[Rfam]
RNA sequence: GGCGAUAAACGGAUUGCGUAAUAAGCUCUUCGGACCCGGGGGCAGUACCCGGCGCCUCCACCCAAGCGACCCGCGGAGCGGGCCGUUUCGGCGGGGGCGAACCAGGAUCGACGAGGGUGUAAAGGCUCUUCUUUCGCUCGGUAUGGUACCACCGUUAUCGGACCAAACUUGUAGUUGCGAAUGACAACUAUGCCGAGGCCCGUCUCGCUGCGUAA
Numbered sequence: 001g002g003c004g005a006u007a008a009a010c011g012g013a014u015u016g017c018g019u020a021a022u023a024a025g026c027u028c029u030u031c032g033g034a035c036c037c038g039g040g041g042g043c044a045g046u047a048c049c050c051g052g053c054g055c056c057u058c059c060a061c062c063c064a065a066g067c068g069a070c071c072c073g074c075g076g077a078g079c080g081g082g083c084c085g086u087u088u089c090g091g092c093g094g095g096g097g098c099g100a101a102c103c104a105g106g107a108u109c110g111a112c113g114a115g116g117g118u119g120u121a122a123a124g125g126c127u128c129u130u131c132u133u134u135c136g137c138u139c140g141g142u143a144u145g146g147u148a149c150c151a152c153c154g155u156u157a158u159c160g161g162a163c164c165a166a167a168c169u170u171g172u173a174g175u176u177g178c179g180a181a182u183g184a185c186a187a188c189u190a191u192g193c194c195g196a197g198g199c200c201c202g203u204c205u206c207g208c209u210g211c212g213u214a215a
Stems, first nucleotide, its partner, number of pairs: 001138005016126002026117003030114003036052005053099007139154004
Rfam assigns this 215-nucleotide sequence from Acuticoccus mangrovi to the family "permuted transfer-messenger RNA".
Rfam links the family to the GO term RNA catabolic process.
From the family's description: Bacterial tmRNA, also known as 10Sa RNA or SsrA, is named for its dual tRNA and mRNA-like properties.
On this family, see Williams and Bartel, RNA 1996: "Phylogenetic analysis of tmRNA secondary structure".